[Rfam]
Annotation:
This 566-nucleotide part of an RNA from Desulfobulbus sp. Tol-SR belongs to the Rfam family "Bacterial large subunit ribosomal RNA". Pairs were carried over by alignment from the consensus structure, which is taken from published work. It scores 3002 bits against the family's covariance model. The source organism's lineage runs through Bacteria, Pseudomonadati, Desulfobulbia, Desulfobulbales and Desulfobulbus. Its family is annotated with structural constituent of ribosome and ribosome in the Gene Ontology.

RNA sequence: UGUUAAGGGCAUACGGUGGAUGCCUUGGCGUCAGGAGGCGAAGAAGGACGUGGAAGGCUGCGAUAAGCCUCGGGGAGCCGUCAAGCAGGCUUUGAUCCGGGGAUUUCCGAAUGGGGCAACCCGGCCAGAGUAAUGUCUGGUCAUCCUUUGACUGAAUACAUAGGUCUUAGGAAGCGAACUCGGGGAAGUGAAACAUCUCAGUACCCGAAGGAAGAGAAAUCAAGAGAGAUUCCGUAAGUAGCGGCGAGCGAACGCGGAAGAGCCUAAACCGUUUGUCUACGGGCAAGCGGGGUUGUAGGGCUCCAAUACGUGAUCCAUGAGUAGAUAGCAGAACGGUCUGGAAAGUCCGGCCAUAGCGAGUGACAGCCUCGUAUGCGAAAUCGAACAGUGGCACAUGGAGUACCUGAGUAGGGCGGGACACGCGAAAUCCCGUUUGAAUCUGGGAGGACCAUCUUCCAAGGCUAAAUACUCCCUGACGACCGAUAGUGUACCAGUACCGUGAGGGAAAGGUGAAAAGAACCCCUGUUAGGGGAGUGCAAUAGAACCUGAAACCGUAUGCCUACAAG
Numbered sequence: 001u002g003u004u005a006a007g008g009g010c011a012u013a014c015g016g017u018g019g020a021u022g023c024c025u026u027g028g029c030g031u032c033a034g035g036a037g038g039c040g041a042a043g044a045a046g047g048a049c050g051u052g053g054a055a056g057g058c059u060g061c062g063a064u065a066a067g068c069c070u071c072g073g074g075g076a077g078c079c080g081u082c083a084a085g086c087a088g089g090c091u092u093u094g095a096u097c098c099g100g101g102g103a104u105u106u107c108c109g110a111a112u113g114g115g116g117c118a119a120c121c122c123g124g125c126c127a128g129a130g131u132a133a134u135g136u137c138u139g140g141u142c143a144u145c146c147u148u149u150g151a152c153u154g155a156a157u158a159c160a161u162a163g164g165u166c167u168u169a170g171g172a173a174g175c176g177a178a179c180u181c182g183g184g185g186a187a188g189u190g191a192a193a194c195a196u197c198u199c200a201g202u203a204c205c206c207g208a209a210g211g212a213a214g215a216g217a218a219a220u221c222a223a224g225a226g227a228g229a230u231u232c233c234g235u236a237a238g239u240a241g242c243g244g245c246g247a248g249c250g251a252a253c254g255c256g257g258a259a260g261a262g263c264c265u266a267a268a269c270c271g272u273u274u275g276u277c278u279a280c281g282g283g284c285a286a287g288c289g290g291g292g293u294u295g296u297a298g299g300g301c302u303c304c305a306a307u308a309c310g311u312g313a314u315c316c317a318u319g320a321g322u323a324g325a326u327a328g329c330a331g332a333a334c335g336g337u338c339u340g341g342a343a344a345g346u347c348c349g350g351c352c353a354u355a356g357c358g359a360g361u362g363a364c365a366g367c368c369u370c371g372u373a374u375g376c377g378a379a380a381u382c383g384a385a386c387a388g389u390g391g392c393a394c395a396u397g398g399a400g401u402a403c404c405u406g407a408g409u410a411g412g413g414c415g416g417g418a419c420a421c422g423c424g425a426a427a428u429c430c431c432g433u434u435u436g437a438a439u440c441u442g443g444g445a446g447g448a449c450c451a452u453c454u455u456c457c458a459a460g461g462c463u464a465a466a467u468a469c470u471c472c473c474u475g476a477c478g479a480c481c482g483a484u485a486g487u488g489u490a491c492c493a494g495u496a497c498c499g500u501g502a503g504g505g506a507a508a509g510g511u512g513a514a515a516a517g518a519a520c521c522c523c524u525g526u527u528a529g530g531g532g533a534g535u536g537c538a539a540u541a542g543a544a545c546c547u548g549a550a551a552c553c554g555u556a557u558g559c560c561u562a563c564a565a566g
Base pairs, nucleotide, nucleotide: 007561008560009559010558011557012556013555014554015553016552022546023510024509027481028480029478030477031476032475033474034473035472036470037469038175039174046108047107048106049062050061051060068102069101070100071099072098073097074096077090078089079088113122114121115120123142124141125140126139127138128137129136144172145171146170147169150166151165152164153163179210180208181207182206183205184204190197191196220227221226230466231258232257233256234255235254241249242248261463262462263461264460269290270289271288272287273286274285275284297405298404299403302399303398304397305396315391316390317389318388322384324382325381326380328376329375330374334349335348336347338345352356358370359369360368411435412434413433414432415431416430417429418428442457443456444455445454446453497504498503520532521531522530523529